Shown here is an 87-nucleotide sequence from Gossypium aridum, a member of the family "MIR7486 microRNA precursor family". The source organism's lineage runs through Eukaryota, Embryophyta, malvids, Malvales and Gossypium. A search with the family's covariance model found it, with a score of 68 bits. Pairs were carried over by alignment from the consensus structure, which was predicted with RNAalifold.
RNA sequence: CACGUCAGGGCGCUUUGCUGACGUGGACACAUAUCGCGUUUUGCAGGCCACACUUUGUUGCCACAUCAGUAAAGCGCACUGACGUGG
Numbered sequence: 001c002a003c004g005u006c007a008g009g010g011c012g013c014u015u016u017g018c019u020g021a022c023g024u025g026g027a028c029a030c031a032u033a034u035c036g037c038g039u040u041u042u043g044c045a046g047g048c049c050a051c052a053c054u055u056u057g058u059u060g061c062c063a064c065a066u067c068a069g070u071a072a073a074g075c076g077c078a079c080u081g082a083c084g085u086g087g
Stems, first nucleotide, its partner, number of pairs: 001086008010077012023064004029058003033054001036051001038049001040047002
Dot-bracket structure: ((((((((.((((((((((((.((((..(((.(..(.(.((....)).).)..).)))..)))).)))))))))))).)))))))).